[Rfam]
Nucleotides: 152
Base pairs, nucleotide, nucleotide: 005137006136007135008134012042013041014040044131045130046129047128048127051061052060062117063116064115071091072090073089074088075087076086095111096110097109098108
Number, partner (000 for none) and nucleotide at each position: 001000a002000a003000a004000u005137a006136g007135c008134u009000g010000a011000a012042g013041c014040c015000g016000a017000g018000u019000c020000c021000g022000g023000u024000a025000c026000a027000c028000a029000g030000a031000c032000a033000a034000a035000g036000u037000g038000c039000c040014g041013g042012u043000a044131c045130g046129g047128g048127g049000g050000a051061c052060g053000a054000u055000u056000u057000a058000c059000u060052u061051g062117g063116g064115g065000u066000g067000a068000a069000u070000a071091u072090u073089u074088g075087c076086u077000g078000u079000u080000u081000c082000u083000u084000g085000a086076a087075g088074c089073a090072g091071a092000c093000u094000a095111g096110g097109g098108a099000g100000a101000a102000c103000c104000u105000u106000c107000u108098u109097c110096c111095c112000g113000a114000a115064c116063c117062c118000g119000u120000c121000a122000a123000c124000u125000a126000a127048c128047c129046u130045c131044g132000g133000a134008g135007g136006c137005u138000c139000a140000u141000g142000a143000a144000g145000g146000a147000g148000g149000a150000a151000u152000a